[Rfam]
RNA sequence: GAAAACAACGGAAUAUCGUUUCGUAUAAUCUCGGGAAUCGGCCCGAGAGUUUCUACAAGAUCACCGUAAUGAUCUGGCUACGAGGCAAACAAUAGAUGGU
Number, nucleotide and partner (000 for none) at each position: 001g000002a000003a000004a000005a000006c000007a000008a000009c000010g000011g000012a000013a000014u000015a000016u000017c000018g086019u085020u084021u083022c082023g081024u080025a079026u000027a000028a000029u048030c047031u046032c045033g044034g043035g042036a000037a000038u000039c000040g000041g000042c035043c034044c033045g032046a031047g030048a029049g000050u000051u000052u000053c000054u000055a000056c000057a000058a075059g074060a073061u072062c071063a070064c000065c000066g000067u000068a000069a000070u063071g062072a061073u060074c059075u058076g000077g000078c000079u025080a024081c023082g022083a021084g020085g019086c018087a000088a000089a000090c000091a000092a000093u000094a000095g000096a000097u000098g000099g000100u000

Rfam assigns this 100-nucleotide RNA sequence from Paenibacillus cremeus to the family "Purine riboswitch aptamer".
Rfam links the family to the GO term purine nucleobase biosynthetic process.